[Rfam]
Nucleotides: 108
Stems, first nucleotide, its partner, number of pairs: 006105009016095017035076005041070001043068001045066003
Number, partner (000 for none) and nucleotide at each position: 001000g002000c003000a004000c005000a006105u007104g008103u009102a010101u011100u012099c013098a014097u015000c016095u017094c018093a019092a020091u021090c022089c023088a024087c025086a026085u027084g028083u029082g030081u031080u032079g033000a034000a035076g036075u037074g038073g039072a040000u041070u042000a043068g044000a045066g046065u047064g048000a049000a050000a051000u052000u053000a054000a055000a056000c057000u058000a059000a060000a061000u062000u063000a064047c065046a066045u067000u068043c069000c070041a071000u072039u073038u074037c075036a076035c077000u078000c079032c080031a081030a082029c083028a084027c085026a086025u087024g088023u089022g090021g091020g092019u093018u094017g095016a096000g097014g098013u099012g100011a101010a102009u103008a104007c105006a106000c107000a108000u
Annotation:
Rfam assigns this 108-nucleotide sequence from Miscanthus lutarioriparius to the family "MIR5565 microRNA precursor family". The match comes from Rfam's covariance-model search (86 bits).